[Rfam]
RNA sequence: ACUGUGGAGUAUUAUAUCAAACUAGAGUAGAUUACUAUUUAUAGUUUUCAAAAUGGGAUACGCUGAAACAGUAA
Numbered sequence: 001a002c003u004g005u006g007g008a009g010u011a012u013u014a015u016a017u018c019a020a021a022c023u024a025g026a027g028u029a030g031a032u033u034a035c036u037a038u039u040u041a042u043a044g045u046u047u048u049c050a051a052a053a054u055g056g057g058a059u060a061c062g063c064u065g066a067a068a069c070a071g072u073a074a
Base pairs, nucleotide, nucleotide: 001072002071003070004069005068009061010060011059012058013057022056023055024054030049031048035044036043
RAGATH-18 RNA: a 74-nucleotide sequence.